[Rfam]
RNA sequence: UGAUGUUCUCAGGGCAGGGUGCAAUUCCCUACCGGCGGUAAGUGGCCUUGGCCAUAAGCCCGCGAGCGCCUAUUUUUGGUAGGGUCAGCAGAUCUGGUGUAAUUCCAGAGCCGACGGUUACAGUCCGGAUGGAAGAGAGCAGCC
Numbered sequence: 001u002g003a004u005g006u007u008c009u010c011a012g013g014g015c016a017g018g019g020u021g022c023a024a025u026u027c028c029c030u031a032c033c034g035g036c037g038g039u040a041a042g043u044g045g046c047c048u049u050g051g052c053c054a055u056a057a058g059c060c061c062g063c064g065a066g067c068g069c070c071u072a073u074u075u076u077u078g079g080u081a082g083g084g085u086c087a088g089c090a091g092a093u094c095u096g097g098u099g100u101a102a103u104u105c106c107a108g109a110g111c112c113g114a115c116g117g118u119u120a121c122a123g124u125c126c127g128g129a130u131g132g133a134a135g136a137g138a139g140c141a142g143c144c
Base pairs, nucleotide, nucleotide: 004141005140006139007138008137009136010135017029018028019027031124032123033113034112035063036062037061038060058111059110066089067088093109094108095107096106097105115127116126117125
RNA: FMN riboswitch aptamer (RFN element)
Organism: Acetobacter orientalis